[Rfam]
RNA sequence: GUGUUCUCGAGAGUUCCCUUGACCACUUCAUGAGGGAUUAAUAUCUUCAUUUUUGAUGCCCUGUUGAAGUGCUUGGGGGAACUCCCAGGUUCAC
Numbered sequence: 001g002u003g004u005u006c007u008c009g010a011g012a013g014u015u016c017c018c019u020u021g022a023c024c025a026c027u028u029c030a031u032g033a034g035g036g037a038u039u040a041a042u043a044u045c046u047u048c049a050u051u052u053u054u055g056a057u058g059c060c061c062u063g064u065u066g067a068a069g070u071g072c073u074u075g076g077g078g079g080a081a082c083u084c085c086c087a088g089g090u091u092c093a094c
Stems, first nucleotide, its partner, number of pairs: 006089002009086001011084010022074001024071007033062003
This 94-nucleotide RNA sequence from Solanum commersonii belongs to the Rfam family "mir-395 microRNA precursor family". From the family's description: mir-395 was identified in both Arabidopsis thaliana and Oryza sativa computationally and was later experimentally verified. mir-395 is thought to target mRNAs coding for ATP sulphurylases. The mature sequence is excised from the 3' arm of the hairpin. The source organism's lineage runs through Eukaryota, Viridiplantae, Pentapetalae, Solanoideae and Solanum.